[Rfam]
RNA sequence: ACUCAGGCACGAUCUGCACUUCGUGGAGAACCGGCCUGAUGUAACCACCUUAGGGA
Numbered sequence: 001a002c003u004c005a006g007g008c009a010c011g012a013u014c015u016g017c018a019c020u021u022c023g024u025g026g027a028g029a030a031c032c033g034g035c036c037u038g039a040u041g042u043a044a045c046c047a048c049c050u051u052a053g054g055g056a
Base pairs, nucleotide, nucleotide: 001042002041004038005037006036007035013029014028015027017025018024019023
RNA: L31-Corynebacteriaceae ribosomal protein leader